[Rfam]
RNA sequence: UUGAAUUAAGGGCAAACCCAUCUAAAGAUGGGGACGCAAAGCCGAGGGUCUAAGGCGCACAUUGUGCUAUGAUAGUCUGGCUGCAAAA
Numbered sequence: 001u002u003g004a005a006u007u008a009a010g011g012g013c014a015a016a017c018c019c020a021u022c023u024a025a026a027g028a029u030g031g032g033g034a035c036g037c038a039a040a041g042c043c044g045a046g047g048g049u050c051u052a053a054g055g056c057g058c059a060c061a062u063u064g065u066g067c068u069a070u071g072a073u074a075g076u077c078u079g080g081c082u083g084c085a086a087a088a
Stems, first nucleotide, its partner, number of pairs: 012037002017032006040082004045078003048073003055067004
The record is an 88-nucleotide sequence from Lacrimispora saccharolytica, which matches "c-di-GMP-I riboswitch aptamer" in Rfam. Lineage of the source: Bacteria > Bacillati > Bacillota > Lachnospirales > Lacrimispora saccharolytica.